Rfam assigns this 146-nucleotide RNA from Adiantum capillus-veneris to the family "small nucleolar RNA snoR134". A reference for the family is Chen and Wu (2009), "Mining small RNA sequencing data: a new approach to identify small nucleolar RNAs in Arabidopsis", Nucleic Acids Res. The base pairs follow the family's consensus structure, which was predicted with RNAalifold. Rfam 15.1 lists 792 matches to the family in 228 species. By type it is an H/ACA-box small nucleolar RNA. Taxonomically the source falls in Adiantum (Eukaryota, Streptophyta, Tracheophyta, Pteridineae).
RNA sequence: AUGCACGGUUAGUAACCCCGGGCUGCCCUUAUCUGACCAAGAAAGGAAGGUUCGGCCUUGUGAUCGUGCUACAGAACGGGCUCCGUGUUGCAGCCAUUUUUCUGUUUCCUCAUAGAAAUGGUUGUGUCAAAGAGGGCUCUACAUUU
Numbered sequence: 001a002u003g004c005a006c007g008g009u010u011a012g013u014a015a016c017c018c019c020g021g022g023c024u025g026c027c028c029u030u031a032u033c034u035g036a037c038c039a040a041g042a043a044a045g046g047a048a049g050g051u052u053c054g055g056c057c058u059u060g061u062g063a064u065c066g067u068g069c070u071a072c073a074g075a076a077c078g079g080g081c082u083c084c085g086u087g088u089u090g091c092a093g094c095c096a097u098u099u100u101u102c103u104g105u106u107u108c109c110u111c112a113u114a115g116a117a118a119u120g121g122u123u124g125u126g127u128c129a130a131a132g133a134g135g136g137c138u139c140u141a142c143a144u145u146u
Stems, first nucleotide, its partner, number of pairs: 003069006010063001020058006027050003078139006086129002089126006097117003